Rfam assigns this 83-nucleotide RNA sequence from Vicugna pacos to the family "mir-1343 microRNA precursor family". Rfam 15.1 lists 238 matches to the family in 131 species. The base pairs follow the family's consensus structure, which was predicted with RNAalifold.

RNA sequence: CUGGCAUCGGUGCUGUGGAGCGGCCCACGGGGCGGGCCACCACUCUGGCCUCUCUUGGGUCCCGCACUCUCGCUCCGGGCCCG
Numbered sequence: 001c002u003g004g005c006a007u008c009g010g011u012g013c014u015g016u017g018g019a020g021c022g023g024c025c026c027a028c029g030g031g032g033c034g035g036g037c038c039a040c041c042a043c044u045c046u047g048g049c050c051u052c053u054c055u056u057g058g059g060u061c062c063c064g065c066a067c068u069c070u071c072g073c074u075c076c077g078g079g080c081c082c083g
Base pairs, nucleotide, nucleotide: 003081004080005079007078008077009076010075012073013072015070017068018067020065021064022063023062026059028057029056030055031054034051035050036049037048038047